purD RNA motif: a 133-nucleotide sequence.
On this family, see Weinberg et al., Nucleic Acids Res 2007: "Identification of 22 candidate structured RNAs in bacteria using the CMfinder comparative genomics pipeline".
[Rfam]
RNA sequence: GUGCGGUAUCUGUGCGAUGUGGCUUUGUCUGAACGCCCAAAAAGCGCGAGAAGUUGCAACCUAAAGGAAAUCGCCUAUUUGCAAGGUUGGCUUUAGUUUUAGGGCCACUUACUUACACACCGCUCACUUGGGU
Numbered sequence: 001g002u003g004c005g006g007u008a009u010c011u012g013u014g015c016g017a018u019g020u021g022g023c024u025u026u027g028u029c030u031g032a033a034c035g036c037c038c039a040a041a042a043a044g045c046g047c048g049a050g051a052a053g054u055u056g057c058a059a060c061c062u063a064a065a066g067g068a069a070a071u072c073g074c075c076u077a078u079u080u081g082c083a084a085g086g087u088u089g090g091c092u093u094u095a096g097u098u099u100u101a102g103g104g105c106c107a108c109u110u111a112c113u114u115a116c117a118c119a120c121c122g123c124u125c126a127c128u129u130g131g132g133u
Stems, first nucleotide, its partner, number of pairs: 003074005009068001018058004023053004034046003088107008
A search with the family's covariance model found it, with a score of 72 bits.